[Rfam]
RNA sequence: UCAAUGCAUCACGGGAGCUUUCGGGCUGAGAGGGCAUAAGGUGCCGACCGUAACACCUGAUUCGGGUAAUGCCGACGGAGGGAGAACUAUGACAAUAAAA
Numbered sequence: 001u002c003a004a005u006g007c008a009u010c011a012c013g014g015g016a017g018c019u020u021u022c023g024g025g026c027u028g029a030g031a032g033g034g035c036a037u038a039a040g041g042u043g044c045c046g047a048c049c050g051u052a053a054c055a056c057c058u059g060a061u062u063c064g065g066g067u068a069a070u071g072c073c074g075a076c077g078g079a080g081g082g083a084g085a086a087c088u089a090u091g092a093c094a095a096u097a098a099a100a
Stems, first nucleotide, its partner, number of pairs: 006088001009085002011051004017026003033045005056081003062075004